Shown here is a 77-nucleotide RNA, a member of the family "RT-18 RNA". By type it is a small RNA.
[Rfam]
RNA sequence: CACCCCUUGGUGAAAAUUAUGCCGAAAAGAGCAGGGUUUAGUAGCAUUUGUCGAAAGACCUUGAGGCUAAUAAGAAA
Numbered sequence: 001c002a003c004c005c006c007u008u009g010g011u012g013a014a015a016a017u018u019a020u021g022c023c024g025a026a027a028a029g030a031g032c033a034g035g036g037u038u039u040a041g042u043a044g045c046a047u048u049u050g051u052c053g054a055a056a057g058a059c060c061u062u063g064a065g066g067c068u069a070a071u072a073a074g075a076a077a
Stems, first nucleotide, its partner, number of pairs: 001012004021067003032063007044052001